[Rfam]
RNA sequence: AGAAAAGUGACCGCCGCCCCGCGCAGGGGCGACGCCGGCAGACCGUUGGCAAAACAGGUUCAACGACAAGCGCGUGGCGAACCGACAAGAACCACGCCCCCGCGAGCCCCUC
Numbered sequence: 001a002g003a004a005a006a007g008u009g010a011c012c013g014c015c016g017c018c019c020c021g022c023g024c025a026g027g028g029g030c031g032a033c034g035c036c037g038g039c040a041g042a043c044c045g046u047u048g049g050c051a052a053a054a055c056a057g058g059u060u061c062a063a064c065g066a067c068a069a070g071c072g073c074g075u076g077g078c079g080a081a082c083c084g085a086c087a088a089g090a091a092c093c094a095c096g097c098c099c100c101c102g103c104g105a106g107c108c109c110c111u112c
Base pairs, nucleotide, nucleotide: 011077012076013075014074015031016030017029018028019027020026058067059066060065095104096103097102
Dot-bracket structure: ..........((((((((((.....))))))..........................(((....)))......)))).................(((....)))........
The family of this 112-nucleotide sequence from Burkholderia seminalis is "Burkholderia sRNA Bp1_Cand684_SIPHT". NCBI's taxonomy places the organism under Bacteria, Pseudomonadati, Pseudomonadota, Burkholderiales, Burkholderia cepacia complex. The base pairs follow the family's consensus structure, which was predicted with RNAalifold. The literature on the family includes a 2012 paper in BMC Genomics by Khoo et al., "Computational discovery and RT-PCR validation of novel Burkholderia conserved and Burkholderia pseudomallei unique sRNAs". The family's RNA type in Rfam is small RNA. A search with the family's covariance model found it, with a score of 115 bits.